[Rfam]
Shown here is an 83-nucleotide sequence from Xenopus tropicalis, a member of the family "mir-221 microRNA precursor family". It is one of the family's seed sequences. Gene Ontology terms of the family: miRNA-mediated post-transcriptional gene silencing and RISC complex. Pairs were carried over by alignment from the consensus structure, which was predicted with RNAalifold. Lineage of the source: Eukaryota > Metazoa > Deuterostomia > Vertebrata > Silurana.

RNA sequence: UUGGCGUGCACCUGGCAUACAAUGUAGAAAACUGUGUUUGCAAAGCAACAGCUACAUUGUCUGCUGGGUUUCAUGCUGAAUGG
Number, nucleotide and partner (000 for none) at each position: 001u000002u000003g000004g000005c000006g000007u000008g000009c000010a000011c000012c067013u066014g065015g064016c063017a062018u000019a060020c059021a058022a057023u056024g055025u054026a053027g052028a000029a000030a000031a000032c051033u050034g049035u048036g000037u000038u000039u000040g000041c000042a000043a000044a000045g000046c000047a000048a035049c034050a033051g032052c027053u026054a025055c024056a023057u022058u021059g020060u019061c000062u017063g016064c015065u014066g013067g012068g000069u000070u000071u000072c000073a000074u000075g000076c000077u000078g000079a000080a000081u000082g000083g000